[Rfam]
RNA sequence: GUCCAGAUGAGCAUCGGUGGUCCAAGGUGCAGGCUUCAAACCUGUAGCUGCUUAGCGGCAGAGUGGUUCAAUUCCACUUUUCGGGC
Numbered sequence: 001g002u003c004c005a006g007a008u009g010a011g012c013a014u015c016g017g018u019g020g021u022c023c024a025a026g027g028u029g030c031a032g033g034c035u036u037c038a039a040a041c042c043u044g045u046a047g048c049u050g051c052u053u054a055g056c057g058g059c060a061g062a063g064u065g066g067u068u069c070a071a072u073u074c075c076a077c078u079u080u081u082c083g084g085g086c
Stems, first nucleotide, its partner, number of pairs: 001086004006081002009078001012027001014025001016023002028046006048061005063077004